[Rfam]
RNA sequence: UAACCGGUAUAAAAUCGUAAAGGAUGAGAACCGUAAAGGUUCGGGUCGAGCGAAAGCGAGACAACGUUGCCUCCGGCAACGGCCCGAAGGGCGAGGCCACAGGCCGAGUCAUCCUGCAAGACCCACCA
Numbered sequence: 001u002a003a004c005c006g007g008u009a010u011a012a013a014a015u016c017g018u019a020a021a022g023g024a025u026g027a028g029a030a031c032c033g034u035a036a037a038g039g040u041u042c043g044g045g046u047c048g049a050g051c052g053a054a055a056g057c058g059a060g061a062c063a064a065c066g067u068u069g070c071c072u073c074c075g076g077c078a079a080c081g082g083c084c085c086g087a088a089g090g091g092c093g094a095g096g097c098c099a100c101a102g103g104c105c106g107a108g109u110c111a112u113c114c115u116g117c118a119a120g121a122c123c124c125a126c127c128a
Base pairs, nucleotide, nucleotide: 015119017117018116021115022114023113025111032093033092040088041087042086043085047058048057065081066080067079068078069077070076

A member of the RNA family "RtT RNA" from Winslowiella iniecta, 128 nucleotides long. The base pairs follow the family's consensus structure, which is taken from published work. Rfam 15.1 lists 651 matches to the family in 204 species. The match comes from Rfam's covariance-model search (79 bits). The literature on the family includes a 1991 paper in Nucleic Acids Res by Bosl and Kersten, "A novel RNA product of the tyrT operon of Escherichia coli". Rfam describes the family as follows. This family represents a bacterial cis-regulatory element known as RtT RNA. The exact function of RtT is unknown although it is thought that it may be involved in changing the cellular response in relation to amino acid starvation.